Nucleotides: 109
Stems, first nucleotide, its partner, number of pairs: 006108004011023004025103002029099002034093004040068007069082003
Number, partner (000 for none) and nucleotide at each position: 001000c002000u003000g004000c005000g006108g007107g008106u009105c010000g011023u012022g013021u014020c015000a016000a017000c018000c019000g020014g021013g022012c023011a024000u025103g026102a027000a028000c029099g030098g031000u032000a033000c034093g035092g036091u037090g038000a039000a040068c041067a042066g043065g044064a045063g046062g047000g048000u049000u050000u051000u052000c053000c054000c055000g056000g057000u058000u059000u060000c061000u062046c063045c064044u065043c066042c067041u068040g069082g070081c071080c072000a073000a074000c075000g076000a077000a078000u079000u080071g081070g082069c083000a084000g085000g086000c087000g088000a089000g090037c091036a092035c093034c094000u095000u096000a097000u098030c099029c100000c101000g102026u103025c104000c105009g106008g107007c108006c109000c
This 109-nucleotide RNA sequence from Manganibacter manganicus belongs to the Rfam family "Rhizobiales sRNA Atu_At1". It is annotated as a small RNA. For this family Rfam cites "Deep sequencing uncovers numerous small RNAs on all four replicons of the plant pathogen Agrobacterium tumefaciens" (Wilms et al., RNA Biol, 2012). Taxonomically the source falls in Manganibacter (Bacteria, Pseudomonadota, Alphaproteobacteria, Phyllobacteriaceae).